[Rfam]
RNA sequence: AGGCCUCAGAAAUCAAGCUUGGGUGAGGCCUAUGAUGUGCAAAGCAGGCGACCCAUUCUUGGUUUCCUAGGCUU
Numbered sequence: 001a002g003g004c005c006u007c008a009g010a011a012a013u014c015a016a017g018c019u020u021g022g023g024u025g026a027g028g029c030c031u032a033u034g035a036u037g038u039g040c041a042a043a044g045c046a047g048g049c050g051a052c053c054c055a056u057u058c059u060u061g062g063u064u065u066c067c068u069a070g071g072c073u074u
Base pairs, nucleotide, nucleotide: 002073003072004071005070006069009066010065011064012063013062014061016059017058021054022053023052024051028049029048030047031046